[Rfam]
RNA sequence: GUUGUCGGAUUCACCCCAAUCCAUGUAUGUUGGGGUGGGUUGGGGUGGAAUAUAGUUCAAGUUCCACUCCAAUCCGUCUCAAAACAUGUGGGUUAAUACGAAUCCGACU
Numbered sequence: 001g002u003u004g005u006c007g008g009a010u011u012c013a014c015c016c017c018a019a020u021c022c023a024u025g026u027a028u029g030u031u032g033g034g035g036u037g038g039g040u041u042g043g044g045g046u047g048g049a050a051u052a053u054a055g056u057u058c059a060a061g062u063u064c065c066a067c068u069c070c071a072a073u074c075c076g077u078c079u080c081a082a083a084a085c086a087u088g089u090g091g092g093u094u095a096a097u098a099c100g101a102a103u104c105c106g107a108c109u
Stems, first nucleotide, its partner, number of pairs: 004108009018094009028084001030082003035077009045067003
Rfam assigns this 109-nucleotide RNA from Miscanthus lutarioriparius to the family "MIR5565 microRNA precursor family". Taxonomically the source falls in Miscanthus (Eukaryota, Euphyllophyta, Magnoliopsida, Andropogonodae). A search with the family's covariance model found it, with a score of 84 bits.